Source information:
U11 spliceosomal RNA: a 135-nucleotide RNA sequence from Trichobilharzia regenti. Rfam links the family to the GO terms U11 snRNP, mRNA 5'-splice site recognition and pre-mRNA 5'-splice site binding. The family's consensus secondary structure is taken from published work.
RNA sequence: AAAAAGGGCCUCCAUCAUAAGUACAUGAUGACCAGUUCAUUACUAAAAUGACUGGGCGGAAUGGCAAUCAAGACAUUUCAUAGGAAUAAUAUUUGAGCACGGGACAGUCGGCUACAAAUAUUGGCUGACGUCCUA
Numbered sequence: 001a002a003a004a005a006g007g008g009c010c011u012c013c014a015u016c017a018u019a020a021g022u023a024c025a026u027g028a029u030g031a032c033c034a035g036u037u038c039a040u041u042a043c044u045a046a047a048a049u050g051a052c053u054g055g056g057c058g059g060a061a062u063g064g065c066a067a068u069c070a071a072g073a074c075a076u077u078u079c080a081u082a083g084g085a086a087u088a089a090u091a092u093u094u095g096a097g098c099a100c101g102g103g104a105c106a107g108u109c110g111g112c113u114a115c116a117a118a119u120a121u122u123g124g125c126u127g128a129c130g131u132c133c134u135a
Stems, first nucleotide, its partner, number of pairs: 009084003013030005032055005038050004058079006102133004107129005115123003